Shown here is a 97-nucleotide RNA sequence from Furfurilactobacillus siliginis, a member of the family "SAM-III riboswitch aptamer (SMK box)". A search with the family's covariance model found it, with a score of 57 bits. A reference for the family is Fuchs et al. (2006), "The S(MK) box is a new SAM-binding RNA for translational regulation of SAM synthetase", Nat Struct Mol Biol. Taxonomically the source falls in Furfurilactobacillus (Bacteria, Bacillota, Bacilli, Lactobacillales).
RNA sequence: CUUAGUUAUGAGUUUCGUUCCCGAUAGGAUAAGGUGGUUUUUCUACCUUAGAGGCCUUGUAACCGGAAAUUAUUUACGAUGGGGGAAACAUUUGAUG
Numbered sequence: 001c002u003u004a005g006u007u008a009u010g011a012g013u014u015u016c017g018u019u020c021c022c023g024a025u026a027g028g029a030u031a032a033g034g035u036g037g038u039u040u041u042u043c044u045a046c047c048u049u050a051g052a053g054g055c056c057u058u059g060u061a062a063c064c065g066g067a068a069a070u071u072a073u074u075u076a077c078g079a080u081g082g083g084g085g086a087a088a089c090a091u092u093u094g095a096u097g
Base pairs, nucleotide, nucleotide: 018087019086020085021084022083026057027056028055030050031049032048033047034046035045036044063082064081